[Rfam]
RNA sequence: AUCUUUGCGCAGUGGCAGUAUCGUAGCCUAUGAGGUUUAUCCGAGGCGUGAUUAUUGCUGGUUGAAAACUUAACCCAAUACCCUGCCCAAUACAUUUCGCUCAGGUUUCUCUUCAGCACAAAUUAACCUGUUGCUUACCCCUGGCUUGCUAGUGGUAGACAGUGGGUUUUUGGCUGUUUCCGAGAAGCUUCUUAGAGC
Number, nucleotide and partner (000 for none) at each position: 001a000002u000003c000004u000005u000006u000007g000008c000009g000010c000011a000012g000013u000014g000015g000016c000017a000018g000019u000020a052021u051022c050023g049024u048025a000026g047027c046028c045029u000030a000031u000032g000033a000034g042035g041036u000037u000038u000039a000040u000041c035042c034043g000044a000045g028046g027047c026048g024049u023050g022051a021052u020053u000054a000055u000056u000057g000058c000059u000060g000061g000062u000063u000064g000065a000066a000067a000068a000069c000070u000071u000072a000073a000074c000075c000076c000077a000078a000079u000080a000081c000082c000083c000084u000085g174086c173087c172088c000089a170090a169091u000092a167093c166094a000095u000096u000097u000098c000099g000100c000101u000102c000103a000104g000105g000106u000107u000108u000109c000110u000111c000112u000113u000114c000115a000116g000117c000118a000119c000120a000121a000122a000123u000124u000125a000126a000127c000128c000129u000130g000131u000132u000133g000134c000135u000136u000137a000138c000139c000140c000141c000142u000143g000144g000145c000146u000147u000148g000149c000150u000151a000152g000153u000154g000155g000156u000157a000158g000159a000160c000161a000162g000163u000164g000165g000166g093167u092168u000169u090170u089171u000172g087173g086174c085175u000176g000177u000178u000179u000180c000181c000182g000183a000184g000185a000186a000187g198188c197189u196190u195191c000192u000193u000194a000195g190196a189197g188198c187
The record is a 198-nucleotide RNA sequence from Conger conger, which matches "U4 spliceosomal RNA" in Rfam. It is annotated as a spliceosomal small nuclear RNA.